Small nucleolar RNA SNORD59: a 74-nucleotide sequence from Rousettus aegyptiacus.
RNA sequence: CCUUCUGUGAUGACUUUAUCAAAUGACUUUCGUUCUUCUGAGUUUGCUGAAGCCAUGUUUAGGUACUGAGAAGG
Numbered sequence: 001c002c003u004u005c006u007g008u009g010a011u012g013a014c015u016u017u018a019u020c021a022a023a024u025g026a027c028u029u030u031c032g033u034u035c036u037u038c039u040g041a042g043u044u045u046g047c048u049g050a051a052g053c054c055a056u057g058u059u060u061a062g063g064u065a066c067u068g069a070g071a072a073g074g
Base pairs, nucleotide, nucleotide: 001074002073003072005070